mir-3473 microRNA precursor family: a 78-nucleotide sequence from Octodon degus.
The match comes from Rfam's covariance-model search (73 bits).
The family's consensus secondary structure was predicted with RNAalifold.
Its family is annotated with cellular response to mechanical stimulus, RISC complex and miRNA-mediated post-transcriptional gene silencing in the Gene Ontology.
The organism belongs to Octodon, within Eukaryota.
Nucleotides: 078
Stems, first nucleotide, its partner, number of pairs: 002077023
Number, partner (000 for none) and nucleotide at each position: 001000u002077c003076u004075g005074c006073u007072g008071a009070g010069c011068c012067a013066u014065c015064u016063c017062c018061c019060u020059g021058g022057c023056c024055c025000u026000g027000a028000a029000u030000g031000u032000u033000u034000g035000u036000c037000u038000u039000u040000a041000a042000a043000a044000u045000g046000u047000a048000a049000a050000u051000g052000u053000a054000g055024g056023g057022g058021c059020c060019g061018g062017g063016g064015a065014g066013a067012u068011g069010g070009c071008u072007c073006a074005g075004c076003a077002g078000a